Rfam assigns this 197-nucleotide RNA sequence from Clostridium tarantellae to the family "SAM riboswitch aptamer (S box leader)". The match comes from Rfam's covariance-model search (52 bits). NCBI's taxonomy places the organism under Bacteria, Bacillati, Eubacteriales, Clostridiaceae, Clostridium. Rfam 15.1 lists 9,625 matches to the family in 4,158 species.
[Rfam]
RNA sequence: AACUUAUCAAGAGUGGUGGAGGGACUGGCCCUAUGAAACCCGGCAACCAAUGUUUAAUACAUAAAAAUAUAUAUUGUAUUAAAAUUUAAUUGUGGUUUAUAUAAAAAAUUUUCACAUGAAUUUUAAUAAUAUAAUUUAUAUAUUGUCAUAUAUUUUACAUACGGUGCUAAAUCCAACAGUUUUCUGAAAGAUAAGGA
Dot-bracket structure: ..((((((....(.(((...(((..[[[)))......))))((((.((.((((.......................................................................................................))))..))))))...(]]].(((....)))..)))))))..